[Rfam]
Nucleotides: 078
Stems, first nucleotide, its partner, number of pairs: 001078002004075004009070008018061002021058009032049002
Number, partner (000 for none) and nucleotide at each position: 001078u002077a003000u004075g005074a006073a007072u008000c009070u010069a011068g012067u013066g014065g015064a016063a017000u018061c019060a020000c021058u022057u023056c024055c025054g026053c027052a028051c029050a030000a031000a032049c033048u034000a035000g036000a037000u038000g039000a040000a041000u042000g043000a044000a045000a046000c047000c048033a049032g050029u051028g052027u053026g054025c055024g056023g057022a058021a059000a060019u061018g062000c063016u064015u065014c066013u067012g068011c069010u070009a071000c072007a073006u074005u075004u076000u077002u078001a
A member of the RNA family "mir-147 microRNA precursor family" from Anolis carolinensis, 78 nucleotides long. Pairs were carried over by alignment from the consensus structure, which was predicted with RNAalifold. A reference for the family is Kawaji et al. (2008), "Hidden layers of human small RNAs", BMC Genomics.